[Rfam]
RNA sequence: AAACAACAUCAGGAGUGGUUUCAUAUUUGAAACCCGCCAACCGAGCCCAGAUAAAUCAAGGCUACGGUGGUUUGAUCCUUAAACGGUAGAUGUGCCUAGGAAAAUAGGAAACAUAGUAAGCCGCCU
Numbered sequence: 001a002a003a004c005a006a007c008a009u010c011a012g013g014a015g016u017g018g019u020u021u022c023a024u025a026u027u028u029g030a031a032a033c034c035c036g037c038c039a040a041c042c043g044a045g046c047c048c049a050g051a052u053a054a055a056u057c058a059a060g061g062c063u064a065c066g067g068u069g070g071u072u073u074g075a076u077c078c079u080u081a082a083a084c085g086g087u088a089g090a091u092g093u094g095c096c097u098a099g100g101a102a103a104a105u106a107g108g109a110a111a112c113a114u115a116g117u118a119a120g121c122c123g124c125c126u
Stems, first nucleotide, its partner, number of pairs: 006093005015035001017034007036071003041067003044063003095108004